[Rfam]
RNA sequence: CGGCUGUAAUGGUCAUAUUGGUUAAGGAGACGCCCGAAAAUCUUCUCCCGGCUCCAAUCUCAUAUCCAUGAGAACUUCCCCCGCGGCGCCCAGCGCGAAUCUUGCGGUGGCCACCCACUCGCACGGGUAACCUGCGAUGCUGCGUCGUGGACCCUAAGCAAUGAAGAUGACACUUGAGGGAGGCUUCACUCUGCAGAGGCAUCUUCACCGCCAGAUGGCGGGCUGGAUCACGAUCGCGGGGGGAACGUGAGAUGGACCGGAGAGGUGGGGAGGUCGACUCCAAUUUUUUGCUCUUUUUUUACUUUUU
Numbered sequence: 001c002g003g004c005u006g007u008a009a010u011g012g013u014c015a016u017a018u019u020g021g022u023u024a025a026g027g028a029g030a031c032g033c034c035c036g037a038a039a040a041u042c043u044u045c046u047c048c049c050g051g052c053u054c055c056a057a058u059c060u061c062a063u064a065u066c067c068a069u070g071a072g073a074a075c076u077u078c079c080c081c082c083g084c085g086g087c088g089c090c091c092a093g094c095g096c097g098a099a100u101c102u103u104g105c106g107g108u109g110g111c112c113a114c115c116c117a118c119u120c121g122c123a124c125g126g127g128u129a130a131c132c133u134g135c136g137a138u139g140c141u142g143c144g145u146c147g148u149g150g151a152c153c154c155u156a157a158g159c160a161a162u163g164a165a166g167a168u169g170a171c172a173c174u175u176g177a178g179g180g181a182g183g184c185u186u187c188a189c190u191c192u193g194c195a196g197a198g199g200c201a202u203c204u205u206c207a208c209c210g211c212c213a214g215a216u217g218g219c220g221g222g223c224u225g226g227a228u229c230a231c232g233a234u235c236g237c238g239g240g241g242g243g244a245a246c247g248u249g250a251g252a253u254g255g256a257c258c259g260g261a262g263a264g265g266u267g268g269g270g271a272g273g274u275c276g277a278c279u280c281c282a283a284u285u286u287u288u289u290g291c292u293c294u295u296u297u298u299u300u301a302c303u304u305u306u307u
Stems, first nucleotide, its partner, number of pairs: 002014003020303003024299002026296005032291002037286003042272006049265001052262004058073006078242008087232002090226005096220002099216004104211004109152001111150002113145002116139001119137005125132002154158001162207007173198003180191003
The family of this 307-nucleotide sequence from Apiosordaria backusii is "Fungal signal recognition particle RNA". It is annotated as a non-coding RNA gene. Lineage of the source: Eukaryota > Dikarya > Ascomycota > Sordariomycetes > Apiosordaria. The family is grouped with related families in Rfam's "SRP clan". Gene Ontology terms of the family: signal recognition particle, endoplasmic reticulum targeting, signal recognition particle, plasma membrane targeting and SRP-dependent cotranslational protein targeting to membrane, signal sequence recognition. The base pairs follow the family's consensus structure, which is taken from published work. A search with the family's covariance model found it, with a score of 148 bits.